[Rfam]
RNA: Purine riboswitch aptamer
Organism: Turicibacter sp. HGF1
RNA sequence: AGUAAAUUGAAUCUUUUCUCUCGUAUAUCAUCGGAAAUAUGGUCCGAAAGUCUCUACCUACUCACCGUAAAUGAGUAGACUACGGGUUUUAUCAGUUAUUAA
Numbered sequence: 001a002g003u004a005a006a007u008u009g010a011a012u013c014u015u016u017u018c019u020c021u022c023g024u025a026u027a028u029c030a031u032c033g034g035a036a037a038u039a040u041g042g043u044c045c046g047a048a049a050g051u052c053u054c055u056a057c058c059u060a061c062u063c064a065c066c067g068u069a070a071a072u073g074a075g076u077a078g079a080c081u082a083c084g085g086g087u088u089u090u091a092u093c094a095g096u097u098a099u100u101a102a
Stems, first nucleotide, its partner, number of pairs: 020086006031047005058078007